[Rfam]
Shown here is a 249-nucleotide sequence from Streptomyces sp. PBH53, a member of the family "Streptomyces sRNA 4677". Pairs were carried over by alignment from the consensus structure. About the family: Located in the intergenic region between anti-sigma factor SCO4677 gene and a putative regulatory protein gene SCO4676. scr4677 expression requires the SCO4677 activity and scr4677 sRNA itself seem to affect the levels of the SCO4676-associated transcripts. On this family, see Hindra et al., PLoS One 2014: "Complex intra-operonic dynamics mediated by a small RNA in Streptomyces coelicolor". Taxonomically the source falls in Streptomyces (Bacteria, Bacillati, Actinomycetota, Kitasatosporales). It scores 203 bits against the family's covariance model.
RNA sequence: UGCUCCGGUGCCACGGGCGGCCUUUCCCAGGAAAGAAACCAAGGGUGAAAGAACCCCCGCCAAGCCCCACCCCUCCCGCCCACGGCGGGCACUCACCCGCCUGGGUGAAGCUGCCCAACUCGGCUGGAUUUCGGACCCGUUGCGUGUCCUACGCUCGGCGCGACACAACCGCAGACAGACGACGGCCCUCGCCGGGAGUAGCGAUCCCAGUGCGAGGGCCUGACCACCGUGGAAGGAAAGGACUUCCCG
Numbered sequence: 001u002g003c004u005c006c007g008g009u010g011c012c013a014c015g016g017g018c019g020g021c022c023u024u025u026c027c028c029a030g031g032a033a034a035g036a037a038a039c040c041a042a043g044g045g046u047g048a049a050a051g052a053a054c055c056c057c058c059g060c061c062a063a064g065c066c067c068c069a070c071c072c073c074u075c076c077c078g079c080c081c082a083c084g085g086c087g088g089g090c091a092c093u094c095a096c097c098c099g100c101c102u103g104g105g106u107g108a109a110g111c112u113g114c115c116c117a118a119c120u121c122g123g124c125u126g127g128a129u130u131u132c133g134g135a136c137c138c139g140u141u142g143c144g145u146g147u148c149c150u151a152c153g154c155u156c157g158g159c160g161c162g163a164c165a166c167a168a169c170c171g172c173a174g175a176c177a178g179a180c181g182a183c184g185g186c187c188c189u190c191g192c193c194g195g196g197a198g199u200a201g202c203g204a205u206c207c208c209a210g211u212g213c214g215a216g217g218g219c220c221u222g223a224c225c226a227c228c229g230u231g232g233a234a235g236g237a238a239a240g241g242a243c244u245u246c247c248c249g
Stems, first nucleotide, its partner, number of pairs: 007228004016080004093108006123159005184220005190214003194208004231247005